[Rfam]
RNA sequence: UUUAAUUACAGGUAUUAAGACUCGGUACACUGUUUACAUUUGAGGUGCGAUGAAUAGCAUUAAGCGUAUAGUAAGUACGCCGUCUCAAAUGGGGCUGUCAGAAAUGACAGCCUUUUUUUAUUU
Numbered sequence: 001u002u003u004a005a006u007u008a009c010a011g012g013u014a015u016u017a018a019g020a021c022u023c024g025g026u027a028c029a030c031u032g033u034u035u036a037c038a039u040u041u042g043a044g045g046u047g048c049g050a051u052g053a054a055u056a057g058c059a060u061u062a063a064g065c066g067u068a069u070a071g072u073a074a075g076u077a078c079g080c081c082g083u084c085u086c087a088a089a090u091g092g093g094g095c096u097g098u099c100a101g102a103a104a105u106g107a108c109a110g111c112c113u114u115u116u117u118u119u120a121u122u123u
Stems, first nucleotide, its partner, number of pairs: 008033004012028005037091006047083003050060003064080006092113009

A member of the RNA family "DUF3800-I RNA" from Megamonas hypermegale, 123 nucleotides long. Actinobacteria, Firmicutes, Fusobacteria, Proteobacteria (1 example), Tenericutes (2 examples). Taxonomically the source falls in Megamonas (Bacteria, Bacillati, Selenomonadales, Selenomonadaceae). By type it is a small RNA.